[Rfam]
The record is a 142-nucleotide RNA sequence from Aquibium oceanicum, which matches "Alphaproteobacterial sRNA BjrC1505" in Rfam. By type it is a small RNA. The source organism's lineage runs through Bacteria, Pseudomonadati, Hyphomicrobiales, Phyllobacteriaceae and Aquibium.
RNA sequence: UCGAGGCGUUAACCCUGCGUUAAGCUUUACGGGUGUUUACUAUGUCCAUCCAGUCUUCUGGAUUCUGACCGAGCGGCUGGGCUGCUCUGUUUGACGCCUCCCUGUUUAACUCCUGAGAGCCGCUUUCCGCGGCUCUUUUUUU
Numbered sequence: 001u002c003g004a005g006g007c008g009u010u011a012a013c014c015c016u017g018c019g020u021u022a023a024g025c026u027u028u029a030c031g032g033g034u035g036u037u038u039a040c041u042a043u044g045u046c047c048a049u050c051c052a053g054u055c056u057u058c059u060g061g062a063u064u065c066u067g068a069c070c071g072a073g074c075g076g077c078u079g080g081g082c083u084g085c086u087c088u089g090u091u092u093g094a095c096g097c098c099u100c101c102c103u104g105u106u107u108a109a110c111u112c113c114u115g116a117g118a119g120c121c122g123c124u125u126u127c128c129g130c131g132g133c134u135c136u137u138u139u140u141u142u
Base pairs, nucleotide, nucleotide: 002044003043005015006014017040021039022038023037024036025035049062050061051060052059071087072086073085074084075083076082093106094105095104096103115137116136117135118134119133120132121131122130123129